[Rfam]
RNA: Purine riboswitch aptamer
RNA sequence: AAAUUUCGUUCACUAACAACUCGUAUAAUUUCGGGAAUAUGGUUCGAAAGUUUCUACCAAACGACCGUAAAUCGUUUGACUACGAGGAAAUUCUCCUCGUGC
Number, nucleotide and partner (000 for none) at each position: 001a000002a000003a000004u000005u000006u000007c000008g000009u000010u000011c000012a000013c000014u000015a000016a000017c000018a000019a000020c086021u085022c084023g083024u082025a081026u000027a000028a000029u049030u048031u047032c046033g045034g044035g043036a000037a000038u000039a000040u000041g000042g000043u035044u034045c033046g032047a031048a030049a029050g000051u000052u000053u000054c000055u000056a000057c000058c078059a077060a076061a075062c074063g073064a072065c000066c000067g000068u000069a000070a000071a000072u064073c063074g062075u061076u060077u059078g058079a000080c000081u025082a024083c023084g022085a021086g020087g000088a000089a000090a000091u000092u000093c000094u000095c000096c000097u000098c000099g000100u000101g000102c000